The record is a 262-nucleotide sequence from Mesotoga sp. SC_3PWM13N19, which matches "Bacterial large signal recognition particle RNA" in Rfam. Taxonomically the source falls in Mesotoga (Bacteria, Thermotogati, Thermotogota, Kosmotogaceae). By type it is a non-coding RNA gene.
RNA sequence: CCAUGCUAGGCGGGGAGCUGGCGGUUCCCUGUACCCGAAAUCCGCCAUACGCGGGGCCGAAUGCCUUCCGAGGCUUUGCCGGUUUGGUGUCGGUUUGUCUGAAGGUGUUGAGGAUUGAGUCCUGCGCAAUGGGAACUUGCGAACCUGGUCAGGUCCGGGAGGAAGCAGCCAUAAGCAAGCACUCCCGUGUGCCGCGGGGGCGCUCAGUCUGAGCCGGAUCGCAAAUACGGCCAGGUUGUCAAUGUCGACGAAGGAUGCAUGG
Dot-bracket structure: ((((((..(((((((((((...))))))))...((((..............))))))).....(((((...(((.(.(.((((((((...((((((((..((.(((.....(((((((((((((((((.(((((.(((((.....((((....(((....)))....))))...)))))...)))))))...))))))...)))))))))..)))...)))))))).)).)))))))).).).)))...)))))..))))))
Numbered sequence: 001c002c003a004u005g006c007u008a009g010g011c012g013g014g015g016a017g018c019u020g021g022c023g024g025u026u027c028c029c030u031g032u033a034c035c036c037g038a039a040a041u042c043c044g045c046c047a048u049a050c051g052c053g054g055g056g057c058c059g060a061a062u063g064c065c066u067u068c069c070g071a072g073g074c075u076u077u078g079c080c081g082g083u084u085u086g087g088u089g090u091c092g093g094u095u096u097g098u099c100u101g102a103a104g105g106u107g108u109u110g111a112g113g114a115u116u117g118a119g120u121c122c123u124g125c126g127c128a129a130u131g132g133g134a135a136c137u138u139g140c141g142a143a144c145c146u147g148g149u150c151a152g153g154u155c156c157g158g159g160a161g162g163a164a165g166c167a168g169c170c171a172u173a174a175g176c177a178a179g180c181a182c183u184c185c186c187g188u189g190u191g192c193c194g195c196g197g198g199g200g201c202g203c204u205c206a207g208u209c210u211g212a213g214c215c216g217g218a219u220c221g222c223a224a225a226u227a228c229g230g231c232c233a234g235g236u237u238g239u240c241a242a243u244g245u246c247g248a249c250g251a252a253g254g255a256u257g258c259a260u261g262g
Stems, first nucleotide, its partner, number of pairs: 001262006009058003012030008034055004064254005072246003076242001078240001080238008091229002093226006101220002104215003112210009121198006127189002130187005136179005146171004154163003